[Rfam]
RNA sequence: AUGGAAGUGGUGAAUAUUUCCCUAGAUGAUUGAAACUGAAAUUACCGAGCACUAUUAUCUUUCAGAAAAAAAUCCAAGCCAAGGUAUUCUGGUCUAU
Numbered sequence: 001a002u003g004g005a006a007g008u009g010g011u012g013a014a015u016a017u018u019u020c021c022c023u024a025g026a027u028g029a030u031u032g033a034a035a036c037u038g039a040a041a042u043u044a045c046c047g048a049g050c051a052c053u054a055u056u057a058u059c060u061u062u063c064a065g066a067a068a069a070a071a072a073u074c075c076a077a078g079c080c081a082a083g084g085u086a087u088u089c090u091g092g093u094c095u096a097u
Stems, first nucleotide, its partner, number of pairs: 001097005
RNA: Small nucleolar RNA Z103